The family of this 73-nucleotide RNA sequence from Branchiostoma belcheri is "mir-4888 microRNA precursor family".

[Rfam]
RNA sequence: GUAUGUGAUGCAGAGCUUGUGCGAUUGGCGCUUGAAAAUGAAGAGCGCCACACGCGAGCUCUUCACCCCAGCC
Numbered sequence: 001g002u003a004u005g006u007g008a009u010g011c012a013g014a015g016c017u018u019g020u021g022c023g024a025u026u027g028g029c030g031c032u033u034g035a036a037a038a039u040g041a042a043g044a045g046c047g048c049c050a051c052a053c054g055c056g057a058g059c060u061c062u063u064c065a066c067c068c069c070a071g072c073c
Stems, first nucleotide, its partner, number of pairs: 001072002004070002007067001009065002012062010023051001026050008
Dot-bracket structure: ((.((.(.((.((((((((((.(..((((((((.........))))))))).)))))))))).)).).)))).
The family's consensus secondary structure was predicted with RNAalifold.
The organism belongs to Branchiostoma, within Eukaryota.